This 62-nucleotide RNA from Terrapene triunguis belongs to the Rfam family "U7 small nuclear RNA".

RNA sequence: GUGUAACUAUAGCUCUUUUAGUAUUUGUUUAACAGGGUUUUCUGCCUUUGUAGAAGACCAUU
Numbered sequence: 001g002u003g004u005a006a007c008u009a010u011a012g013c014u015c016u017u018u019u020a021g022u023a024u025u026u027g028u029u030u031a032a033c034a035g036g037g038u039u040u041u042c043u044g045c046c047u048u049u050g051u052a053g054a055a056g057a058c059c060a061u062u
Stems, first nucleotide, its partner, number of pairs: 036059010
Dot-bracket structure: ...................................((((((((((....))))))))))...